The record is a 73-nucleotide RNA from Vibrio phage 70E35.2, which matches "tRNA" in Rfam.
RNA sequence: GGGUAGUUAGCAAAAUGGAAACGCAGCGAGCUGUUAACUCGUCAUGACACAGGUUCAAUUCCUGUACUGCCCG
Numbered sequence: 001g002g003g004u005a006g007u008u009a010g011c012a013a014a015a016u017g018g019a020a021a022c023g024c025a026g027c028g029a030g031c032u033g034u035u036a037a038c039u040c041g042u043c044a045u046g047a048c049a050c051a052g053g054u055u056c057a058a059u060u061c062c063u064g065u066a067c068u069g070c071c072c073g
Stems, first nucleotide, its partner, number of pairs: 001072007010024002026042005049065005
Overview: Rfam's curators write: Transfer RNA (tRNA) molecules are approximately 80 nucleotides in length. Taxonomically the source falls in Demerecviridae (Viruses, Heunggongvirae, Uroviricota, Caudoviricetes). Its family is annotated with triplet codon-amino acid adaptor activity in the Gene Ontology.